The record is a 100-nucleotide RNA from Cuscuta campestris, which matches "Small nucleolar RNA R30/Z108" in Rfam. snoR30 is a C/D box small nucleolar RNA which acts as a methylation guide for 18S ribosomal RNA in plants. NCBI's taxonomy places the organism under Eukaryota, Euphyllophyta, Spermatophyta, Pentapetalae, Cuscuta sect. Cleistogrammica. The match comes from Rfam's covariance-model search (78 bits). Pairs were carried over by alignment from the consensus structure, which was predicted with PFOLD. The family is grouped with related families in Rfam's "SNORD100 clan".

RNA sequence: UUUGAUUGCGAUGAGGAUCUCUAAGCUCCCUCUUCUGAUUGAUGUUGAGGAAAUUCGCUGGCCGAAUCGAACCAUUAUAACUAUCGCCACCACUGAGCAA
Numbered sequence: 001u002u003u004g005a006u007u008g009c010g011a012u013g014a015g016g017a018u019c020u021c022u023a024a025g026c027u028c029c030c031u032c033u034u035c036u037g038a039u040u041g042a043u044g045u046u047g048a049g050g051a052a053a054u055u056c057g058c059u060g061g062c063c064g065a066a067u068c069g070a071a072c073c074a075u076u077a078u079a080a081c082u083a084u085c086g087c088c089a090c091c092a093c094u095g096a097g098c099a100a
Stems, first nucleotide, its partner, number of pairs: 006100004